A member of the RNA family "Potassium channel RNA editing signal" from Pleuronectes platessa, 114 nucleotides long.

RNA sequence: GUGGGCUAUGGUGACAUGUACCCAGAAACAGUAUGGGGUAAGCUUGUUGGCUCAAUGUGCGCCAUAGCUGGCGUGCUUACCAUAUCACUACCAGUGCCGGUCAUAGUAUCCAAU
Numbered sequence: 001g002u003g004g005g006c007u008a009u010g011g012u013g014a015c016a017u018g019u020a021c022c023c024a025g026a027a028a029c030a031g032u033a034u035g036g037g038g039u040a041a042g043c044u045u046g047u048u049g050g051c052u053c054a055a056u057g058u059g060c061g062c063c064a065u066a067g068c069u070g071g072c073g074u075g076c077u078u079a080c081c082a083u084a085u086c087a088c089u090a091c092c093a094g095u096g097c098c099g100g101u102c103a104u105a106g107u108a109u110c111c112a113a114u
Stems, first nucleotide, its partner, number of pairs: 001114002004111002007108003011104001013102003018097004037077004049063003
This family represents a group of sequences related to the human potassium channel Kv1.1 hairpin element which directs the efficient modification of an adenosine to inosine by an adenosine deaminase acting on RNA (ADAR). The ADAR modification causes an isoleucine/valine recoding event which lies in the ion-conducting pore of the potassium channel. It is thought that this editing event targets the process of fast inactivation and allows a more rapid recovery from inactivation at negative potentials. It is annotated as a cis-regulatory element. Pairs were carried over by alignment from the consensus structure, which is taken from published work. Rfam links the family to the GO term adenosine to inosine editing.